[Rfam]
RNA: Small nucleolar RNA SNORA23
RNA sequence: GUGUGUGUGUGUGUGUGGUGUGUGUGUGUGUGUGUGUUUGUUUGUGUGUGUACACACACACAGACACACACACACACACACACACAUAUGCAUAUGUAUAUAUAUAUAUAUAUAUAAUAUAUAUAUUAUAUAUAUAUUAUAUAUAUAUAUAUAUAUGUACACACACAC
Numbered sequence: 001g002u003g004u005g006u007g008u009g010u011g012u013g014u015g016u017g018g019u020g021u022g023u024g025u026g027u028g029u030g031u032g033u034g035u036g037u038u039u040g041u042u043u044g045u046g047u048g049u050g051u052a053c054a055c056a057c058a059c060a061c062a063g064a065c066a067c068a069c070a071c072a073c074a075c076a077c078a079c080a081c082a083c084a085c086a087u088a089u090g091c092a093u094a095u096g097u098a099u100a101u102a103u104a105u106a107u108a109u110a111u112a113u114a115u116a117a118u119a120u121a122u123a124u125a126u127u128a129u130a131u132a133u134a135u136a137u138u139a140u141a142u143a144u145a146u147a148u149a150u151a152u153a154u155a156u157g158u159a160c161a162c163a164c165a166c167a168c
Base pairs, nucleotide, nucleotide: 007079008078009077010076023070024069025068027066028065029062036061037060039058040057043054044053045052095161096160097159098158099157107147108146109145110144111143112142113141114140115139116138118132119131120130121129122128123127